[Rfam]
RNA sequence: GAAAACCUUAUUAAGCUUAACUCUAGUUUAAUAUUAUAAAAAGAUAUAGGAGGUGUAGAAUAGGUAGGAGCUUUAGUGCUAGUAAAAUACUACUACUCCUAUUAUUUUUUUACUUAUUUAAUAAAGUAAGGCUAGAUUUUUAUCUAACUUCUAGUUUUAAAGUCCUUUAUAGGCUAACCUAGGUUAAAGAUAUUAUUAGGUAGGGAGUUUAGCUAGGGUAGUAUAUUUAUUAAACUAUAAUAUAGGUGUCCUAAGGGGGGCUUAUAGAGAAUAGAAAUCUCUAGUAAAAUAAAAGGGUAAAAGUCCCCUUAAUUUUGAUUUUUAGUGUAAAUAUAAACCAUAAAAGUGUAGCCUAUUAAUCCUUUAGUCCCUUAAUAUUUAAGGCUAGAGGUGCUAGAAAAGUUACUAUAGGGAUAACUAGCUUAUAGUAGCUAAGCGUUUAUAGUAACAUUGCUUUUUAAUCCUUUAAUAU
Number, nucleotide and partner (000 for none) at each position: 001g000002a000003a000004a000005a000006c000007c412008u411009u410010a409011u000012u408013a407014a404015g403016c402017u401018u400019a000020a208021c207022u206023c205024u000025a000026g000027u200028u199029u198030a197031a196032u195033a194034u000035u000036a000037u112038a111039a110040a109041a108042a107043g106044a105045u104046a102047u101048a100049g099050g098051a097052g096053g000054u000055g000056u000057a000058g000059a000060a000061u000062a000063g094064g093065u092066a091067g090068g000069a000070g077071c076072u000073u000074u000075a000076g071077u070078g000079c000080u000081a000082g000083u000084a000085a000086a000087a000088u000089a000090c067091u066092a065093c064094u063095a000096c052097u051098c050099c049100u048101a047102u046103u000104a045105u044106u043107u042108u041109u040110u039111u038112a037113c000114u000115u000116a000117u188118u187119u186120a185121a184122u000123a000124a000125a000126g000127u181128a180129a000130g178131g000132c000133u000134a000135g144136a143137u000138u000139u000140u000141u000142a000143u136144c135145u000146a000147a000148c000149u000150u000151c000152u000153a000154g000155u000156u000157u000158u000159a000160a000161a175162g174163u173164c172165c000166u000167u000168u000169a000170u000171a000172g164173g163174c162175u161176a000177a000178c130179c000180u128181a127182g000183g000184u121185u120186a119187a118188a117189g000190a000191u000192a000193u000194u033195a032196u031197u030198a029199g028200g027201u000202a000203g000204g000205g023206a022207g021208u020209u000210u000211a224212g222213c221214u220215a000216g000217g000218g000219u000220a214221g213222u212223a000224u211225a247226u246227u245228u244229a243230u242231u000232a000233a000234a000235c000236u000237a000238u000239a000240a000241u000242a230243u229244a228245g227246g226247u225248g000249u000250c351251c000252u000253a000254a000255g000256g308257g307258g306259g305260g304261c303262u288263u287264a000265u283266a282267g281268a280269g279270a278271a000272u000273a000274g000275a000276a000277a000278u270279c269280u268281c267282u266283a265284g000285u000286a000287a263288a262289a298290u297291a000292a000293a000294a000295g000296g000297g290298u289299a000300a000301a000302a000303g261304u260305c259306c258307c257308c256309u000310u000311a000312a000313u337314u336315u335316u000317g000318a332319u331320u330321u329322u000323u000324a000325g000326u000327g000328u000329a321330a320331a319332u318333a000334u000335a315336a314337a313338c000339c348340a347341u346342a000343a000344a000345a000346g341347u340348g339349u000350a000351g250352c000353c000354u000355a000356u000357u000358a000359a000360u000361c000362c390363u389364u388365u387366a386367g385368u000369c000370c384371c383372u382373u381374a000375a000376u000377a000378u000379u000380u000381a373382a372383g371384g370385c367386u366387a365388g364389a363390g362391g000392u000393g000394c000395u000396a000397g000398a000399a000400a018401a017402g016403u015404u014405a000406c000407u013408a012409u010410a009411g008412g007413g000414a000415u000416a000417a000418c000419u000420a000421g462422c000423u460424u000425a459426u000427a455428g454429u453430a452431g451432c000433u000434a000435a000436g446437c445438g000439u000440u000441u000442a000443u000444a000445g437446u436447a000448a000449c000450a000451u431452u430453g429454c428455u427456u000457u000458u000459u425460a423461a000462u421463c000464c000465u000466u000467u000468a000469a000470u000471a000472u000
This 472-nucleotide part of an RNA from Epichloe typhina belongs to the Rfam family "Eukaryotic large subunit ribosomal RNA". Rfam links the family to the GO terms structural constituent of ribosome and ribosome. Rfam's curators put it in the seed alignment. Its Rfam clan is "LSU clan". The organism belongs to Epichloe typhina, within Eukaryota.